[Rfam]
Nucleotides: 095
Stems, first nucleotide, its partner, number of pairs: 007082004011045004016039001017031005051076003057070004
Number, partner (000 for none) and nucleotide at each position: 001000c002000c003000a004000c005000a006000g007082g008081a009080c010079a011045c012044g013043g014042g015000g016039u017031g018030c019029u020028c021027c022000c023000c024000c025000a026000c027021g028020g029019a030018g031017c032000u033000g034000a035000g036000a037000g038000a039016a040000c041000a042014c043013c044012c045011g046000u047000u048000g049000a050000a051076c052075c053074u054000g055000c056000u057070c058069u059068a060067g061000u062000u063000a064000g065000g066000a067060c068059u069058a070057g071000c072000g073000a074053a075052g076051g077000g078000a079010u080009g081008u082007c083000a084000c085000c086000u087000c088000a089000g090000g091000a092000u093000g094000a095000c